[Rfam]
RNA sequence: CAGGGGUAAAAUAGUGAGUAGCCGACUUGGGGAAGUGAUCAACCUUUGGGAUAAGUUUAAAUCUGCUUUUUUUUACCCCAAAAACUUUUUAUCAUAGGUAAAAAGAUUCUUCUUGGGGUAUAAAAAAAACCAUAUUUAAAUUUAGCCCAUGGGUUGAUGAUGUAUUUUCCCCAAGAAGACUACUCACCAUUUUACCCCAA
Dot-bracket structure: ..((((((((((.((((((((.(..((((((((((..(((((((..((((.((((.((((((.((.(((((((((((((((...(((((((((...))))))))).......))))))))..))))))).)).)))))).)))).))))..)))...))))....))))))))))..).)))))))).))))))))))..
Source information:
The family of this 200-nucleotide sequence from Medicago truncatula is "MIR2670 microRNA precursor family". Its family is annotated with miRNA-mediated post-transcriptional gene silencing and RISC complex in the Gene Ontology. The base pairs follow the family's consensus structure, which was predicted with RNAalifold. The source organism's lineage runs through Eukaryota, Viridiplantae, rosids, Trifolieae and Medicago.